[Rfam]
RNA: Clostridiales-1 RNA
RNA sequence: UGAUACAAGUGUCAAAAACAUGAAAAUCCGUUGCAAGCUUGCUUGCAAAAGGAUUUGACAUCUUUUGACACGCAAACAAUAUGAGUAAGUAGCCGUUUUUGCAAAAAACGAGCGGAUUACGAAUAUUGUUGCAAGGAUUGCGAGAAGCGUUAGCUGAAGCAAUCCUGUAUCA
Numbered sequence: 001u002g003a004u005a006c007a008a009g010u011g012u013c014a015a016a017a018a019c020a021u022g023a024a025a026a027u028c029c030g031u032u033g034c035a036a037g038c039u040u041g042c043u044u045g046c047a048a049a050a051g052g053a054u055u056u057g058a059c060a061u062c063u064u065u066u067g068a069c070a071c072g073c074a075a076a077c078a079a080u081a082u083g084a085g086u087a088a089g090u091a092g093c094c095g096u097u098u099u100u101g102c103a104a105a106a107a108a109c110g111a112g113c114g115g116a117u118u119a120c121g122a123a124u125a126u127u128g129u130u131g132c133a134a135g136g137a138u139u140g141c142g143a144g145a146a147g148c149g150u151u152a153g154c155u156g157a158a159g160c161a162a163u164c165c166u167g168u169a170u171c172a
Stems, first nucleotide, its partner, number of pairs: 001172007010070004017064002020061003025056002027053003031049002033046005075130008085120004092113002094110005135165007146155003